[Rfam]
Nucleotides: 093
Stems, first nucleotide, its partner, number of pairs: 001093005
Number, partner (000 for none) and nucleotide at each position: 001093g002092c003091u004090g005089u006000u007000c008000a009000g010000u011000g012000a013000u014000g015000a016000g017000a018000c019000c020000a021000u022000g023000g024000a025000a026000c027000u028000a029000g030000c031000a032000c033000u034000g035000u036000a037000c038000a039000c040000a041000g042000u043000g044000u045000c046000c047000g048000a049000c050000a051000g052000g053000c054000a055000u056000g057000a058000g059000g060000a061000g062000a063000c064000a065000u066000u067000c068000c069000a070000u071000g072000c073000u074000g075000c076000c077000u078000u079000c080000c081000u082000u083000c084000u085000g086000a087000g088000a089005a090004c091003a092002g093001c
Small nucleolar RNA U83B: a 93-nucleotide sequence from Chelydra serpentina. From the family's description: U83B belongs to the C/D family of snoRNAs. U83B like U83A has no documented RNA target and they share the same host gene with the C/D box snoRNA U43 (RPL3). N.B. U83A/B/C have no sequence similarity with the U83 snoRNA that was cloned by Jady and Kiss (2000). Rfam classes the family as a C/D-box small nucleolar RNA. The source organism's lineage runs through Eukaryota, Gnathostomata, Testudines, Durocryptodira and Chelydra.